[Rfam]
RNA sequence: GGUAAUAAACGCGCAUGUAAUAAGCGGAUCGGACCCGGGGGCGGUACCCGGCGACUCCACCAAAUAUACCGUUCAUUUGGCGGUUGGCAUGGGGUCGAAAUAGGAUCGACGGACGUCUAAAGAUGUUUGCUUUUGCCCGGUGCGGUGUCGCUGUUAUCGACCCACUUAAGCUAGUUGCAAAUGACAACAAAGCACCGAUGGCUGUAGCUGCGUAA
Numbered sequence: 001g002g003u004a005a006u007a008a009a010c011g012c013g014c015a016u017g018u019a020a021u022a023a024g025c026g027g028a029u030c031g032g033a034c035c036c037g038g039g040g041g042c043g044g045u046a047c048c049c050g051g052c053g054a055c056u057c058c059a060c061c062a063a064a065u066a067u068a069c070c071g072u073u074c075a076u077u078u079g080g081c082g083g084u085u086g087g088c089a090u091g092g093g094g095u096c097g098a099a100a101u102a103g104g105a106u107c108g109a110c111g112g113a114c115g116u117c118u119a120a121a122g123a124u125g126u127u128u129g130c131u132u133u134u135g136c137c138c139g140g141u142g143c144g145g146u147g148u149c150g151c152u153g154u155u156a157u158c159g160a161c162c163c164a165c166u167u168a169a170g171c172u173a174g175u176u177g178c179a180a181a182u183g184a185c186a187a188c189a190a191a192g193c194a195c196c197g198a199u200g201g202c203u204g205u206a207g208c209u210g211c212g213u214a215a
Stems, first nucleotide, its partner, number of pairs: 001137005013126004025115002029112003035051005052097007138153004
Dot-bracket structure: (((((.......((((........((..(((...(((((.......)))))(((((((................................)))))))............))).)).......))))......)))))((((........))))..............................................................